Rfam assigns this 90-nucleotide RNA from Paracoccus homiensis to the family "Glycine riboswitch aptamer".

RNA sequence: ACAAGGAAUUCGGGAGAAGCCGGUGAAACGCCGGUGCCGAAGGAGCAGCCGCCCCGGCGAACUCUCAGGCAAAAGGACCGUCUUCCAUCA
Numbered sequence: 001a002c003a004a005g006g007a008a009u010u011c012g013g014g015a016g017a018a019g020c021c022g023g024u025g026a027a028a029c030g031c032c033g034g035u036g037c038c039g040a041a042g043g044a045g046c047a048g049c050c051g052c053c054c055c056g057g058c059g060a061a062c063u064c065u066c067a068g069g070c071a072a073a074a075g076g077a078c079c080g081u082c083u084u085c086c087a088u089c090a
Stems, first nucleotide, its partner, number of pairs: 006085003011080003020034004036070003039066002043064003048058002
For this family Rfam cites "In Vivo Behavior of the Tandem Glycine Riboswitch in Bacillus subtilis" (Babina et al., MBio, 2017). The pairing is the family consensus, mapped onto this sequence. The source organism's lineage runs through Bacteria, Pseudomonadati, Pseudomonadota, Alphaproteobacteria and Paracoccus.